Shown here is a 65-nucleotide RNA sequence from Carlito syrichta, a member of the family "Vault RNA". The family has 73 seed sequences and 2,873 matches in Rfam 15.1. Pairs were carried over by alignment from the consensus structure, which is taken from published work. It scores 51 bits against the family's covariance model.
RNA sequence: GGACUGGCUUUAGCUCAGCGGUUCCUUUGGUUGUUCGAGAACUGUGGGUGCUUUCCAGCCUUUUU
Numbered sequence: 001g002g003a004c005u006g007g008c009u010u011u012a013g014c015u016c017a018g019c020g021g022u023u024c025c026u027u028u029g030g031u032u033g034u035u036c037g038a039g040a041a042c043u044g045u046g047g048g049u050g051c052u053u054u055c056c057a058g059c060c061u062u063u064u065u
Stems, first nucleotide, its partner, number of pairs: 002060001004058004013049004018045004026039005